[Rfam]
RNA sequence: AUGAUAACAAGGGGAGAGACUACGCCAGUAGCGCCGAAGGAGCAAGCAGACAUGCGAAUCUCUCAGGCAAAAGAACCCUUGUUGGACG
Numbered sequence: 001a002u003g004a005u006a007a008c009a010a011g012g013g014g015a016g017a018g019a020c021u022a023c024g025c026c027a028g029u030a031g032c033g034c035c036g037a038a039g040g041a042g043c044a045a046g047c048a049g050a051c052a053u054g055c056g057a058a059u060c061u062c063u064c065a066g067g068c069a070a071a072a073g074a075a076c077c078c079u080u081g082u083u084g085g086a087c088g
Base pairs, nucleotide, nucleotide: 006083007082008081009080010079011078012077013076020031021030022029023028033068034067035066036064037063040062041061042060046055047054

Glycine riboswitch aptamer: an 88-nucleotide RNA sequence from Neobacillus piezotolerans. About the family: This family represents the bacterial glycine riboswitch. Glycine riboswitches usually consist of two metabolite-binding aptamers domains with similar structures in tandem. The aptamers cooperatively bind glycine to regulate the expression of downstream genes. In Bacillus subtilis, this riboswitch is found upstream of the gcvT operon which controls glycine degradation. The pairing is the family consensus, mapped onto this sequence. The source organism's lineage runs through Bacteria, Bacillati, Caryophanales, Bacillaceae and Neobacillus.